[Rfam]
RNA sequence: UUAUAUUAACCGAAAGGAAUGAUGGGUGGACAAUGAGUAACUAACCUAAUGUUUACAUUUGAAAUUUAAUAUUUCAGAUAAUAAAAACUUAGGAUUAGUCUGUCCAUUUUUCUAUAUACUAAAUAGCUAUAUAAUGGUGAAUAGCUUAUUUAACUGUGUAAAAAUGUUAUGUGACUAAUCCUUCCAAAUUUAUUUGGGAGGAUUUUUUA
Numbered sequence: 001u002u003a004u005a006u007u008a009a010c011c012g013a014a015a016g017g018a019a020u021g022a023u024g025g026g027u028g029g030a031c032a033a034u035g036a037g038u039a040a041c042u043a044a045c046c047u048a049a050u051g052u053u054u055a056c057a058u059u060u061g062a063a064a065u066u067u068a069a070u071a072u073u074u075c076a077g078a079u080a081a082u083a084a085a086a087a088c089u090u091a092g093g094a095u096u097a098g099u100c101u102g103u104c105c106a107u108u109u110u111u112c113u114a115u116a117u118a119c120u121a122a123a124u125a126g127c128u129a130u131a132u133a134a135u136g137g138u139g140a141a142u143a144g145c146u147u148a149u150u151u152a153a154c155u156g157u158g159u160a161a162a163a164a165u166g167u168u169a170u171g172u173g174a175c176u177a178a179u180c181c182u183u184c185c186a187a188a189u190u191u192a193u194u195u196g197g198g199a200g201g202a203u204u205u206u207u208u209a
Stems, first nucleotide, its partner, number of pairs: 016113004023106004029100003042097003046093002049090001052086003057079009120152003126145005132139001177204011
Shown here is a 209-nucleotide RNA from Bacillus sp. J14TS2, a member of the family "Bacillus sRNA ncr1575". A reference for the family is Irnov et al. (2010), "Identification of regulatory RNAs in Bacillus subtilis", Nucleic Acids Res. The family's consensus secondary structure is taken from published work.